[Rfam]
RNA sequence: GAUGUGUUCAUGAAGGUCUGUUCUUAAACUGAAGAGAAGGAACAGAUCUGAUCUAUAACACC
Number, nucleotide and partner (000 for none) at each position: 001g062002a000003u060004g059005u058006g000007u000008u000009c000010a000011u000012g000013a000014a000015g048016g047017u046018c045019u044020g043021u042022u041023c040024u039025u000026a000027a000028a000029c036030u035031g000032a000033a000034g000035a030036g029037a000038a000039g024040g023041a022042a021043c020044a019045g018046a017047u016048c015049u000050g000051a000052u000053c000054u000055a000056u000057a000058a005059c004060a003061c000062c001
This 62-nucleotide sequence from Nothobranchius furzeri belongs to the Rfam family "Selenocysteine insertion sequence 1". The base pairs follow the family's consensus structure, which is taken from published work. By type it is a cis-regulatory element.